[Rfam]
This 60-nucleotide RNA sequence from Erwinia sorbitola belongs to the Rfam family "rydB RNA". On this family, see Wassarman et al., Genes Dev 2001: "Identification of novel small RNAs using comparative genomics and microarrays". About the family: This family consists of several bacterial sequences from E. coli, Shigella flexneri and Salmonella species. This RNA gene was discovered by an RNA screen between the ydiC and ydiH in E. coli. Taxonomically the source falls in Erwinia (Bacteria, Pseudomonadota, Gammaproteobacteria, Erwiniaceae). The match comes from Rfam's covariance-model search (65 bits).
RNA sequence: GCCCCUCACAGAGCUAACACCGUUGAGUGCCGGAGAUAAGCGCCGGAAGGGGUAUGCUCC
Numbered sequence: 001g002c003c004c005c006u007c008a009c010a011g012a013g014c015u016a017a018c019a020c021c022g023u024u025g026a027g028u029g030c031c032g033g034a035g036a037u038a039a040g041c042g043c044c045g046g047a048a049g050g051g052g053u054a055u056g057c058u059c060c
Stems, first nucleotide, its partner, number of pairs: 002052004013028003030046004035041001